[Rfam]
RNA: mir-393 microRNA precursor family
RNA sequence: GGUGGAGAGCUCCAAAGGGAUCGCAUUGAUCUAAUAGUGUUCCUGGAUUACUGAAUGAAUUCAUGGAAACUGGUAUAAGCUUUUGUUGAUUCAGUUCACUCAUUGGAUCAUGCAAUCCCUUCGGAAUUUUCCAU
Numbered sequence: 001g002g003u004g005g006a007g008a009g010c011u012c013c014a015a016a017g018g019g020a021u022c023g024c025a026u027u028g029a030u031c032u033a034a035u036a037g038u039g040u041u042c043c044u045g046g047a048u049u050a051c052u053g054a055a056u057g058a059a060u061u062c063a064u065g066g067a068a069a070c071u072g073g074u075a076u077a078a079g080c081u082u083u084u085g086u087u088g089a090u091u092c093a094g095u096u097c098a099c100u101c102a103u104u105g106g107a108u109c110a111u112g113c114a115a116u117c118c119c120u121u122c123g124g125a126a127u128u129u130u131c132c133a134u
Stems, first nucleotide, its partner, number of pairs: 002134005008128002011125003015121007023113004028109008